[Rfam]
RNA sequence: CCCAACUAAGAUAAAAACACAGUUCUGGUUGGUAAGUCCAGACACGUAGGCGAGCCUAUCAGUAACCUAAGGAUAUGAAUAGAAAUGAAGAGUAGUCCAUCAAGGCUACUCUUUUUCGUCAAAAGAAC
Numbered sequence: 001c002c003c004a005a006c007u008a009a010g011a012u013a014a015a016a017a018c019a020c021a022g023u024u025c026u027g028g029u030u031g032g033u034a035a036g037u038c039c040a041g042a043c044a045c046g047u048a049g050g051c052g053a054g055c056c057u058a059u060c061a062g063u064a065a066c067c068u069a070a071g072g073a074u075a076u077g078a079a080u081a082g083a084a085a086u087g088a089a090g091a092g093u094a095g096u097c098c099a100u101c102a103a104g105g106c107u108a109c110u111c112u113u114u115u116u117c118g119u120c121a122a123a124a125g126a127a128c
Base pairs, nucleotide, nucleotide: 005119006118008116009115010114011113022043023042025041026040027039028038046059047058048057049056050055
RNA: azaaromatic riboswitch aptamer (yjdF RNA)